[Rfam]
RNA sequence: CUUAUCCUUGUCUUUGGGGAGCAAAGUGCUCAAUGAUCGUUUAGUGAGAGUACUGUUGCUGAAACCCAGAUAAAAAUUUUAACCGCAUCCGUAAUAUAUUUACGAGAUGCAAUUUUUGGGUAG
Dot-bracket structure: ....((((.......)))).(((((((((((......(.....)...))))))).)))).........................((((((((((.....))))).))))).............

Annotation
A member of the RNA family "U4atac minor spliceosomal RNA" from Temnothorax curvispinosus, 123 nucleotides long. The base pairs follow the family's consensus structure, which is taken from published work. From the family's description: U4atac is an essential component of the minor U12-type spliceosome complex which is required for removal of the rarer class of eukaryotic introns (AT-AC, U12-type). Gene Ontology terms of the family: spliceosomal tri-snRNP complex assembly, U4atac snRNP and mRNA 5'-splice site recognition. Lineage of the source: Eukaryota > Pancrustacea > Apocrita > Aculeata > Temnothorax. Clan: U4 clan. On this family, see Lorkovic et al., RNA 2005: "Evolutionary conservation of minor U12-type spliceosome between plants and humans".